RNA: c-di-AMP riboswitch aptamer (ydaO/yuaA leader)
RNA sequence: GAGUCCGGAGCGCCGAGCACAGCAAUCCGGAGCCGGGGACCCACCAGACCUUGGGGUGAAUCGGGACGGCCCCCACCCGUUCCGUAGGGCAGACCUUUCCGCGUCCGAACCCGACAGCUAACCCGGUAGGCGUCAGUCGGAAGGAGCG
Numbered sequence: 001g002a003g004u005c006c007g008g009a010g011c012g013c014c015g016a017g018c019a020c021a022g023c024a025a026u027c028c029g030g031a032g033c034c035g036g037g038g039a040c041c042c043a044c045c046a047g048a049c050c051u052u053g054g055g056g057u058g059a060a061u062c063g064g065g066a067c068g069g070c071c072c073c074c075a076c077c078c079g080u081u082c083c084g085u086a087g088g089g090c091a092g093a094c095c096u097u098u099c100c101g102c103g104u105c106c107g108a109a110c111c112c113g114a115c116a117g118c119u120a121a122c123c124c125g126g127u128a129g130g131c132g133u134c135a136g137u138c139g140g141a142a143g144g145a146g147c148g
Stems, first nucleotide, its partner, number of pairs: 011132004020029001032127006042053002054112003062084008087106004